RNA sequence: UUUGCUGGUUUUUGCUGGUCCUUUGCUGGUUUAUGCUGGUCAUGUUGCUAGUCCCAGCAACAUGACCAGCAUAAACCAGCAAAGGACCAGCAAAAACCA
Numbered sequence: 001u002u003u004g005c006u007g008g009u010u011u012u013u014g015c016u017g018g019u020c021c022u023u024u025g026c027u028g029g030u031u032u033a034u035g036c037u038g039g040u041c042a043u044g045u046u047g048c049u050a051g052u053c054c055c056a057g058c059a060a061c062a063u064g065a066c067c068a069g070c071a072u073a074a075a076c077c078a079g080c081a082a083a084g085g086a087c088c089a090g091c092a093a094a095a096a097c098c099a
Base pairs, nucleotide, nucleotide: 016089017088018087019086020085021084022083024081025080026079027078028077029076030075031074032073033072034071035070036069037068039066040065041064042063043062044061
Rfam assigns this 99-nucleotide sequence from Labeo rohita to the family "mir-36 microRNA precursor family". The organism belongs to Labeo, within Eukaryota. Gene Ontology terms of the family: miRNA-mediated post-transcriptional gene silencing and RISC complex.